[Rfam]
RNA: c-di-AMP riboswitch aptamer (ydaO/yuaA leader)
RNA sequence: GUACAAAAUAUGCUGAAUCCUUGUGAUUUAUGACGAGGUACGGAGGAACCAAGAAAAGGGGGUUAAUCCAUUUUAUAUGGUAGGGUGAUCCUAUUACCCGAACCCGGCAGCUAACUUCGGAAGCACAGUAUAGGAGGAAUA
Numbered sequence: 001g002u003a004c005a006a007a008a009u010a011u012g013c014u015g016a017a018u019c020c021u022u023g024u025g026a027u028u029u030a031u032g033a034c035g036a037g038g039u040a041c042g043g044a045g046g047a048a049c050c051a052a053g054a055a056a057a058g059g060g061g062g063u064u065a066a067u068c069c070a071u072u073u074u075a076u077a078u079g080g081u082a083g084g085g086u087g088a089u090c091c092u093a094u095u096a097c098c099c100g101a102a103c104c105c106g107g108c109a110g111c112u113a114a115c116u117u118c119g120g121a122a123g124c125a126c127a128g129u130a131u132a133g134g135a136g137g138a139a140u141a
Stems, first nucleotide, its partner, number of pairs: 011125004019038006041119005050059001060105003068080004083099004